A member of the RNA family "Plant small nucleolar RNA R71" from Actinidia chinensis, 107 nucleotides long. The organism belongs to Actinidia chinensis, within Eukaryota. The match comes from Rfam's covariance-model search (51 bits). It is annotated as a C/D-box small nucleolar RNA.
[Rfam]
RNA sequence: AAACCAUGGUGUGGACAUGCGAACAAUAGGUCUUUGAACCUCUCCCAACAUUGGAAGAAAGUCUCACCACUAUUCGGUGCAAAUUGAGAAAUGGCACGUCUUAGUGC
Number, nucleotide and partner (000 for none) at each position: 001a000002a000003a105004c104005c000006a101007u000008g000009g000010u000011g000012u000013g000014g000015a000016c000017a000018u000019g000020c000021g000022a000023a000024c000025a000026a000027u000028a000029g000030g000031u000032c000033u000034u000035u000036g000037a000038a000039c000040c000041u000042c000043u000044c000045c000046c000047a000048a000049c000050a000051u000052u000053g000054g000055a000056a000057g074058a073059a000060a071061g000062u000063c000064u000065c000066a000067c000068c000069a000070c000071u060072a000073u058074u057075c000076g000077g000078u000079g000080c000081a000082a000083a000084u000085u000086g000087a000088g000089a000090a000091a000092u000093g000094g000095c000096a000097c000098g000099u000100c000101u006102u000103a000104g004105u003106g000107c000
Gene Ontology terms of the family: nucleolus and RNA processing.